This 134-nucleotide sequence from Scophthalmus maximus belongs to the Rfam family "Small nucleolar RNA SNORA3/SNORA45 family". Pairs were carried over by alignment from the consensus structure, which was predicted with RNAalifold. The family is grouped with related families in Rfam's "SNORA3 clan". By type it is an H/ACA-box small nucleolar RNA. The members of this family belong to the H/ACA class of snoRNAs which are thought to guide the sites of modification of uridines to pseudouridines. Its family is annotated with RNA processing and nucleolus in the Gene Ontology.
RNA sequence: CGCGAGGCUAGAGUCACGCCUGGACACUUCCCGUUGUCCUGGUGUGCUAGAGUGCUCGCAGAGGAAAAACGUCUCUGCUUAUUCAUUGGCUGUAGUCUGACGUGGCCCGGUCAAUCACCAACAGAGAUACAUUA
Dot-bracket structure: .((((((((..((.((((((..((((........))))..))))))))..))).))))).............(((((.(.....(((((.((...(.......)...)).)))))....).)))))........